The record is an 87-nucleotide sequence from Ceratopteris richardii, which matches "Stem loopII regulatory element in POLB" in Rfam.
A search with the family's covariance model found it, with a score of 41 bits.
Gene Ontology term of the family: regulation of RNA stability.
RNA sequence: AACUCUCUAGGACAUCUUACAUUAUUGCUUACCUUUACUAUGAUGGGUUCCUAGAGUUUGUAAAUCAUUGUAAAAGUCCUUUCUCCU
Numbered sequence: 001a002a003c004u005c006u007c008u009a010g011g012a013c014a015u016c017u018u019a020c021a022u023u024a025u026u027g028c029u030u031a032c033c034u035u036u037a038c039u040a041u042g043a044u045g046g047g048u049u050c051c052u053a054g055a056g057u058u059u060g061u062a063a064a065u066c067a068u069u070g071u072a073a074a075a076g077u078c079c080u081u082u083c084u085c086c087u
Stems, first nucleotide, its partner, number of pairs: 009080004017063004026054001031048004036043001038042001